This 127-nucleotide sequence from Gasterosteus aculeatus belongs to the Rfam family "U4atac minor spliceosomal RNA".
Its family is annotated with pre-mRNA 5'-splice site binding, mRNA 5'-splice site recognition and U4atac snRNP in the Gene Ontology.
The sequence is in the family's curated seed alignment.
U4atac is an essential component of the minor U12-type spliceosome complex which is required for removal of the rarer class of eukaryotic introns (AT-AC, U12-type).
RNA sequence: UCUUUCCUUGUCAUGGGGUGGCUUGGGGGACUCAAUGAACGCGUAGUGAGAGCCUCCCUGCUAACACCAGACCAACACAUGCGCGUCACCCGGGCGUCACGCCCGGGCUAUGACGCAAUUUUUGGAA
Numbered sequence: 001u002c003u004u005u006c007c008u009u010g011u012c013a014u015g016g017g018g019u020g021g022c023u024u025g026g027g028g029g030a031c032u033c034a035a036u037g038a039a040c041g042c043g044u045a046g047u048g049a050g051a052g053c054c055u056c057c058c059u060g061c062u063a064a065c066a067c068c069a070g071a072c073c074a075a076c077a078c079a080u081g082c083g084c085g086u087c088a089c090c091c092g093g094g095c096g097u098c099a100c101g102c103c104c105g106g107g108c109u110a111u112g113a114c115g116c117a118a119u120u121u122u123u124g125g126a127a
Stems, first nucleotide, its partner, number of pairs: 006018004020062003025057003029054001031052003039047002083116006089107008